[Rfam]
The family of this 125-nucleotide RNA from Bucco capensis is "Small nucleolar RNA ACA64". The base pairs follow the family's consensus structure, which was predicted with WAR. It is annotated as an H/ACA-box small nucleolar RNA. NCBI's taxonomy places the organism under Eukaryota, Teleostomi, Archelosauria, Telluraves, Bucco.
RNA sequence: ACAGUCUGAAAAUCACUUCGGGUCUUCUGUAGCCCCUGGUGCGAUAACUGUGCCGACCGCAGAGGGAGCAUUAAACUCAUUGUCCACGGUAAAAUGUGUGGAGUGAUACCCAUGUUCCUAUAAUC
Numbered sequence: 001a002c003a004g005u006c007u008g009a010a011a012a013u014c015a016c017u018u019c020g021g022g023u024c025u026u027c028u029g030u031a032g033c034c035c036c037u038g039g040u041g042c043g044a045u046a047a048c049u050g051u052g053c054c055g056a057c058c059g060c061a062g063a064g065g066g067a068g069c070a071u072u073a074a075a076c077u078c079a080u081u082g083u084c085c086a087c088g089g090u091a092a093a094a095u096g097u098g099u100g101g102a103g104u105g106a107u108a109c110c111c112a113u114g115u116u117c118c119u120a121u122a123a124u125c
Stems, first nucleotide, its partner, number of pairs: 006050001008048001010045001014041003021034003065118001067116005077106005085098003
Dot-bracket structure: .....(.(.(...(((....(((........)))....)))...)..).)..............(.(((((.....(((((...(((........)))...))))).....))))).).......